[Rfam]
RNA: 6S / SsrS RNA
RNA sequence: UAAUUCCUGGGAUGUUCGAUGACUCCUGUCAUUUUGAACCUACAUUUACUUUAAACGGGAUUCCUAUAUUGCUCCUCAGAUGUCAGGCCGUCAUUGCGCAGCGGAAGGCAGAAGAGGUGUUGCGGUAACCCACCUAGCAGCAGCUAGGAGUCAGAAGAUAGGGAACGGCAUCCUGGGUUUACA
Numbered sequence: 001u002a003a004u005u006c007c008u009g010g011g012a013u014g015u016u017c018g019a020u021g022a023c024u025c026c027u028g029u030c031a032u033u034u035u036g037a038a039c040c041u042a043c044a045u046u047u048a049c050u051u052u053a054a055a056c057g058g059g060a061u062u063c064c065u066a067u068a069u070u071g072c073u074c075c076u077c078a079g080a081u082g083u084c085a086g087g088c089c090g091u092c093a094u095u096g097c098g099c100a101g102c103g104g105a106a107g108g109c110a111g112a113a114g115a116g117g118u119g120u121u122g123c124g125g126u127a128a129c130c131c132a133c134c135u136a137g138c139a140g141c142a143g144c145u146a147g148g149a150g151u152c153a154g155a156a157g158a159u160a161g162g163g164a165a166c167g168g169c170a171u172c173c174u175g176g177g178u179u180u181a182c183a
Base pairs, nucleotide, nucleotide: 003180006177007176008175009174010173011172012171013170014169015168017167018166032158033157034156035153036152037151039148040147057131058130059129061127063125064124068121071120072119074117075116076115077114083108084107088104089103090102091101